[Rfam]
RNA: serC leader
Organism: Pararhodospirillum oryzae
RNA sequence: CGACGGGCCACGAUCCCCCAACGGGUCGCGACCUUCUGUGAGGAAGGAAGAC
Numbered sequence: 001c002g003a004c005g006g007g008c009c010a011c012g013a014u015c016c017c018c019c020a021a022c023g024g025g026u027c028g029c030g031a032c033c034u035u036c037u038g039u040g041a042g043g044a045a046g047g048a049a050g051a052c
Stems, first nucleotide, its partner, number of pairs: 011028006032047006